[Rfam]
RNA sequence: UGUUAAAUCAGGAAUUGCAAAAAUUCCUAGGCAAUGUGUUUAAUAUUUGUAAAUUAUUCCUAGAAACUGUUCACAAUGCCUGUAACA
Numbered sequence: 001u002g003u004u005a006a007a008u009c010a011g012g013a014a015u016u017g018c019a020a021a022a023a024u025u026c027c028u029a030g031g032c033a034a035u036g037u038g039u040u041u042a043a044u045a046u047u048u049g050u051a052a053a054u055u056a057u058u059c060c061u062a063g064a065a066a067c068u069g070u071u072c073a074c075a076a077u078g079c080c081u082g083u084a085a086c087a
Stems, first nucleotide, its partner, number of pairs: 009082004014077004020071002022068001024066002027063005039051001041049001
Rfam assigns this 87-nucleotide RNA sequence from Suricata suricatta to the family "mir-384 microRNA precursor family".
Its family is annotated with miRNA-mediated post-transcriptional gene silencing and RISC complex in the Gene Ontology.
It scores 86 bits against the family's covariance model.
The base pairs follow the family's consensus structure, which was predicted with RNAalifold.
Taxonomically the source falls in Suricata (Eukaryota, Metazoa, Teleostomi, Herpestidae).
For this family Rfam cites "A pancreatic islet-specific microRNA regulates insulin secretion" (Poy et al., Nature, 2004).